Rfam assigns this 140-nucleotide RNA from Scleropages formosus to the family "Small nucleolar RNA SNORD10". Lineage of the source: Eukaryota > Euteleostomi > Actinopterygii > Osteoglossocephala > Scleropages. Gene Ontology terms of the family: RNA processing and nucleolus. Rfam 15.1 lists 433 matches to the family in 306 species. A search with the family's covariance model found it, with a score of 63 bits.
[Rfam]
RNA sequence: GUUUAGUGAUGAUCCCCAUGCGUGUCAACUGAUCCCAGAAUCCCCUGCAGCUCUUGGCAGCUUGCUGAUGUUCUGUUAGCAGGUGGACCUCAGACUGUAUGGCUCUGGGGCUGUGAUCAGAGUUCUUAGAGGCUGAAAAC
Numbered sequence: 001g002u003u004u005a006g007u008g009a010u011g012a013u014c015c016c017c018a019u020g021c022g023u024g025u026c027a028a029c030u031g032a033u034c035c036c037a038g039a040a041u042c043c044c045c046u047g048c049a050g051c052u053c054u055u056g057g058c059a060g061c062u063u064g065c066u067g068a069u070g071u072u073c074u075g076u077u078a079g080c081a082g083g084u085g086g087a088c089c090u091c092a093g094a095c096u097g098u099a100u101g102g103c104u105c106u107g108g109g110g111c112u113g114u115g116a117u118c119a120g121a122g123u124u125c126u127u128a129g130a131g132g133c134u135g136a137a138a139a140c
Base pairs, nucleotide, nucleotide: 001140002139003138004137043102044101046099047098048097049096050095